[Rfam]
RNA sequence: ACCAUUCUUUCCUUGGGGUUGUGCUACUGUCCAAUGAGUGUGUAGUGAGGGCACUACUGCUAAUGCCUUCACAACACACCCACAUCAACUAGAACUUUGCUUUACUUUGGUGCAAUUUUUGGAAAA
Numbered sequence: 001a002c003c004a005u006u007c008u009u010u011c012c013u014u015g016g017g018g019u020u021g022u023g024c025u026a027c028u029g030u031c032c033a034a035u036g037a038g039u040g041u042g043u044a045g046u047g048a049g050g051g052c053a054c055u056a057c058u059g060c061u062a063a064u065g066c067c068u069u070c071a072c073a074a075c076a077c078a079c080c081c082a083c084a085u086c087a088a089c090u091a092g093a094a095c096u097u098u099g100c101u102u103u104a105c106u107u108u109g110g111u112g113c114a115a116u117u118u119u120u121g122g123a124a125a126a
Base pairs, nucleotide, nucleotide: 006018007017008016009015021060022059023058026055028053029052030051031050032049038046039045083112084111085110086109087108090104091103092102093101095099
Rfam assigns this 126-nucleotide RNA from Callithrix jacchus to the family "U4atac minor spliceosomal RNA".
On this family, see Davila Lopez et al., Nucleic Acids Res 2008: "Computational screen for spliceosomal RNA genes aids in defining the phylogenetic distribution of major and minor spliceosomal components".
Clan: U4 clan.
Pairs were carried over by alignment from the consensus structure, which is taken from published work.
By type it is a spliceosomal small nuclear RNA.
About the family: U4atac is an essential component of the minor U12-type spliceosome complex which is required for removal of the rarer class of eukaryotic introns (AT-AC, U12-type).
Rfam links the family to the GO terms pre-mRNA 5'-splice site binding, mRNA 5'-splice site recognition and U4atac snRNP.